Rfam assigns this 122-nucleotide sequence from Sulfobacillus sp. hq2 to the family "c-di-AMP riboswitch aptamer (ydaO/yuaA leader)". The pairing is the family consensus, mapped onto this sequence.
[Rfam]
RNA sequence: CGUUACACCGCGCCUAAUUCCUUGGGAACCGGGGGAUUAUUCUUUGGGUGAAUCCUUUUUAGGCAGGGACGCUCGUGCCCGAACCCGUAAACUAACUCCGGCGGCGCCAAACGAGAGGAGGC
Numbered sequence: 001c002g003u004u005a006c007a008c009c010g011c012g013c014c015u016a017a018u019u020c021c022u023u024g025g026g027a028a029c030c031g032g033g034g035g036a037u038u039a040u041u042c043u044u045u046g047g048g049u050g051a052a053u054c055c056u057u058u059u060u061a062g063g064c065a066g067g068g069a070c071g072c073u074c075g076u077g078c079c080c081g082a083a084c085c086c087g088u089a090a091a092c093u094a095a096c097u098c099c100g101g102c103g104g105c106g107c108c109a110a111a112c113g114a115g116a117g118g119a120g121g122c
Base pairs, nucleotide, nucleotide: 011106012105013104014103018028019027020026029101030100031099032098033097034096039045046086047085048084054063055062056061066080067079068078